[Rfam]
RNA sequence: AUCUUAUCGAGAGAGGUGGAGGGACUGGCCCCAUGAAGCCUCAGCAACCGGCAAAUCGCCAUGGUGCUAAAUCCAGCAAGCAGAAGCUUGAUAGAUGAGGA
Numbered sequence: 001a002u003c004u005u006a007u008c009g010a011g012a013g014a015g016g017u018g019g020a021g022g023g024a025c026u027g028g029c030c031c032c033a034u035g036a037a038g039c040c041u042c043a044g045c046a047a048c049c050g051g052c053a054a055a056u057c058g059c060c061a062u063g064g065u066g067c068u069a070a071a072u073c074c075a076g077c078a079a080g081c082a083g084a085a086g087c088u089u090g091a092u093a094g095a096u097g098a099g100g101a
Base pairs, nucleotide, nucleotide: 002100003099004098005097006096007095008094013042014041015040016039017038021031022030023029025076026075027074028073043068044067045066046065048064049063050060051059052058072093077090078089079088080087081086
Dot-bracket structure: .(((((((....(((((...(((.[[[[)))......)))))((((.(((((.....)))..))))))...(]]]](((((....)))))..)))))))).